RNA sequence: GUGACCCUGCGGCGUUCGAUGCCGGGCAUUCAGCAUUCUUGAGCCUACAAGCAGACGCCUCAGGAGAUGGUUUGUGGUGAUGACUGGUGUGCACGUCCGCUCUGCCAAAAGCUUAGCGGAAAGCCUAAAGCGUUACUCGCUAUCUCCGACCUGAACCUCAGGGUUCAAGGGCGUUGCCCGAACGGCGUCGUGGGGUCCUU
Numbered sequence: 001g002u003g004a005c006c007c008u009g010c011g012g013c014g015u016u017c018g019a020u021g022c023c024g025g026g027c028a029u030u031c032a033g034c035a036u037u038c039u040u041g042a043g044c045c046u047a048c049a050a051g052c053a054g055a056c057g058c059c060u061c062a063g064g065a066g067a068u069g070g071u072u073u074g075u076g077g078u079g080a081u082g083a084c085u086g087g088u089g090u091g092c093a094c095g096u097c098c099g100c101u102c103u104g105c106c107a108a109a110a111g112c113u114u115a116g117c118g119g120a121a122a123g124c125c126u127a128a129a130g131c132g133u134u135a136c137u138c139g140c141u142a143u144c145u146c147c148g149a150c151c152u153g154a155a156c157c158u159c160a161g162g163g164u165u166c167a168a169g170g171g172c173g174u175u176g177c178c179c180g181a182a183c184g185g186c187g188u189c190g191u192g193g194g195g196u197c198c199u200u
Stems, first nucleotide, its partner, number of pairs: 003197013017184002036171001038170002040167006063147003067143005074137001077136006085130001091124002096120005
A member of the RNA family "6S / SsrS RNA" from Spiribacter salilacus, 200 nucleotides long. E. coli 6S RNA was the first non coding RNA to be sequenced, but its function was unknown until recently. By type it is a non-coding RNA gene. Lineage of the source: Bacteria > Pseudomonadati > Pseudomonadota > Ectothiorhodospiraceae > Spiribacter.